A member of the RNA family "Glycine riboswitch aptamer" from Nakamurella alba, 104 nucleotides long.
NCBI's taxonomy places the organism under Bacteria, Actinomycetota, Actinomycetes, Nakamurellaceae, Nakamurella.
The base pairs follow the family's consensus structure.
Its family is annotated with glycine biosynthetic process in the Gene Ontology.
The match comes from Rfam's covariance-model search (62 bits).
[Rfam]
RNA sequence: UCACCCCCCGCGGGAGAGCCCGGCAACCGUCCCCGGACGGCGGCCGGCGCCGAAGGAGCAACUCUCCCCGACAAUCUCUCAGGCACCCGUACCGCGGGGGACAG
Numbered sequence: 001u002c003a004c005c006c007c008c009c010g011c012g013g014g015a016g017a018g019c020c021c022g023g024c025a026a027c028c029g030u031c032c033c034c035g036g037a038c039g040g041c042g043g044c045c046g047g048c049g050c051c052g053a054a055g056g057a058g059c060a061a062c063u064c065u066c067c068c069c070g071a072c073a074a075u076c077u078c079u080c081a082g083g084c085a086c087c088c089g090u091a092c093c094g095c096g097g098g099g100g101a102c103a104g
Stems, first nucleotide, its partner, number of pairs: 006099008020047004049084003052080002056078003063071002